[Rfam]
RNA sequence: UAUACAGUGCAGGACUGACGGAAUGAAGUGGAAUAACCACGUGGACUGCACGGUGACAUAUACGCCGACCGUCUGGGCAAGAGUA
Number, nucleotide and partner (000 for none) at each position: 001u000002a000003u055004a054005c053006a000007g051008u050009g049010c048011a047012g046013g000014a000015c043016u000017g073018a072019c071020g070021g069022a000023a000024u000025g000026a000027a000028g040029u039030g038031g037032a000033a000034u000035a000036a000037c031038c030039a029040c028041g000042u000043g015044g000045a000046c012047u011048g010049c009050a008051c007052g000053g005054u004055g003056a000057c000058a000059u000060a000061u000062a000063c000064g078065c077066c076067g000068a000069c021070c020071g019072u018073c017074u000075g000076g066077g065078c064079a000080a000081g000082a000083g000084u000085a000
ZMP/ZTP riboswitch aptamer (pfl RNA motif): an 85-nucleotide RNA sequence from Megasphaera sp. An286. The match comes from Rfam's covariance-model search (62 bits).